RNA sequence: GUGCUUCAUGGUUUUAAGUUAUUCAGUGUGACCUAUUUGAUUGGUUCAAGUCUAUUCAUAGUUUCAUACUGUUGUAAGUGAAGCUAAAGUAAUGCCCCCUCGCUAUCCAUUGCAACCAUUAUGUUGUAAUUGGACGUUUGGGGGAUACAACU
Numbered sequence: 001g002u003g004c005u006u007c008a009u010g011g012u013u014u015u016a017a018g019u020u021a022u023u024c025a026g027u028g029u030g031a032c033c034u035a036u037u038u039g040a041u042u043g044g045u046u047c048a049a050g051u052c053u054a055u056u057c058a059u060a061g062u063u064u065c066a067u068a069c070u071g072u073u074g075u076a077a078g079u080g081a082a083g084c085u086a087a088a089g090u091a092a093u094g095c096c097c098c099c100u101c102g103c104u105a106u107c108c109a110u111u112g113c114a115a116c117c118a119u120u121a122u123g124u125u126g127u128a129a130u131u132g133g134a135c136g137u138u139u140g141g142g143g144g145a146u147a148c149a150a151c152u
Stems, first nucleotide, its partner, number of pairs: 001085001003084002007080002012078001015076002017073002024071008093145001095143004101136002106134004115124002
The family of this 152-nucleotide sequence from Actinidia chinensis is "Small nucleolar RNA snoR136". Rfam links the family to the GO terms nucleolus and RNA processing. On this family, see Chen and Wu, Nucleic Acids Res 2009: "Mining small RNA sequencing data: a new approach to identify small nucleolar RNAs in Arabidopsis".